[Rfam]
RNA sequence: CAAGCACAUCGAGAGCGGACUAAAUUCCCACCAACCCGCAUACUCAAGCAAGGUGGUUCAGCAUGUGGCCAAAUGGCAAUCAACUGGGUAUCU
Numbered sequence: 001c002a003a004g005c006a007c008a009u010c011g012a013g014a015g016c017g018g019a020c021u022a023a024a025u026u027c028c029c030a031c032c033a034a035c036c037c038g039c040a041u042a043c044u045c046a047a048g049c050a051a052g053g054u055g056g057u058u059c060a061g062c063a064u065g066u067g068g069c070c071a072a073a074u075g076g077c078a079a080u081c082a083a084c085u086g087g088g089u090a091u092c093u
Stems, first nucleotide, its partner, number of pairs: 006066004015029001017028003030057003035053002038049002042089005068077003
Rfam assigns this 93-nucleotide sequence to the family "SAM-I/IV (S-adenosyl methionine) riboswitch aptamer". The family is grouped with related families in Rfam's "SAM clan".